This 117-nucleotide sequence from Glycine max belongs to the Rfam family "MIR1520 microRNA precursor family". The base pairs follow the family's consensus structure, which was predicted with RNAalifold. The family is grouped with related families in Rfam's "MIR1520 microRNA precursor clan". The match comes from Rfam's covariance-model search (110 bits). Rfam 15.1 lists 1,934 matches to the family in 15 species.

RNA sequence: UUCUUAUUGGAUGAUGAUCGUCAUGCGUCAUGUUUUGAUUGGAUGUUAAUUUCAUGAAAGAUGAAAUGAAUUGUUUUUAUUGACCAAUCAGAACAUGACUUGUGGCAAUUAUCAUCC
Numbered sequence: 001u002u003c004u005u006a007u008u009g010g011a012u013g014a015u016g017a018u019c020g021u022c023a024u025g026c027g028u029c030a031u032g033u034u035u036u037g038a039u040u041g042g043a044u045g046u047u048a049a050u051u052u053c054a055u056g057a058a059a060g061a062u063g064a065a066a067u068g069a070a071u072u073g074u075u076u077u078u079a080u081u082g083a084c085c086a087a088u089c090a091g092a093a094c095a096u097g098a099c100u101u102g103u104g105g106c107a108a109u110u111a112u113c114a115u116c117c
Stems, first nucleotide, its partner, number of pairs: 020106004025101001029097003033093004038088003